[Rfam]
RNA sequence: GGGUGCCAGCUGCGGUUUGCAGUGAGGCAGGUUUAUGCGUAGGUCGGGCCGCCACG
Numbered sequence: 001g002g003g004u005g006c007c008a009g010c011u012g013c014g015g016u017u018u019g020c021a022g023u024g025a026g027g028c029a030g031g032u033u034u035a036u037g038c039g040u041a042g043g044u045c046g047g048g049c050c051g052c053c054a055c056g
Base pairs, nucleotide, nucleotide: 005028006027007026009023010022011021012020013019038056039055040054042053043052044051
RNA: nhaA-I RNA